[Rfam]
RNA sequence: CUAUGGUUUUCAAAAAACUAUGGCGGAAGGAG
Numbered sequence: 001c002u003a004u005g006g007u008u009u010u011c012a013a014a015a016a017a018c019u020a021u022g023g024c025g026g027a028a029g030g031a032g
Stems, first nucleotide, its partner, number of pairs: 001023010
Overview: L31-Firmicutes ribosomal protein leader: a 32-nucleotide sequence. The family is grouped with related families in Rfam's "Ribosomal Protein L31 Leader clan". Rfam's curators put it in the seed alignment.